[Rfam]
RNA: Gut-1 RNA
Organism: Ruminococcus sp. CAG:177
RNA sequence: CAAUGAUAUCCGUUCCUUGCGGAACGGGUGAUAUAUCUUCGAUAUGAUAUCGCACUGUCGUGCGAUGAUAUAUGCC
Numbered sequence: 001c002a003a004u005g006a007u008a009u010c011c012g013u014u015c016c017u018u019g020c021g022g023a024a025c026g027g028g029u030g031a032u033a034u035a036u037c038u039u040c041g042a043u044a045u046g047a048u049a050u051c052g053c054a055c056u057g058u059c060g061u062g063c064g065a066u067g068a069u070a071u072a073u074g075c076c
Stems, first nucleotide, its partner, number of pairs: 008029008033045004049066007